ZMP/ZTP riboswitch aptamer (pfl RNA motif): an 82-nucleotide RNA sequence from Blautia sp. CAG:257. Lineage of the source: Bacteria > Bacillati > Clostridia > Lachnospiraceae > Blautia.

[Rfam]
RNA sequence: UAACGACUGCAUGACUGGCGGAAAACAGGAAUUACCUGUGGGGAGUGCAGUAAGUGAUAAGCCGACCGCCUGGGCAGCCUGA
Dot-bracket structure: .....(((((((..(([[[[[....((((.....))))..))..))))))).........(((..]]]]]..))).......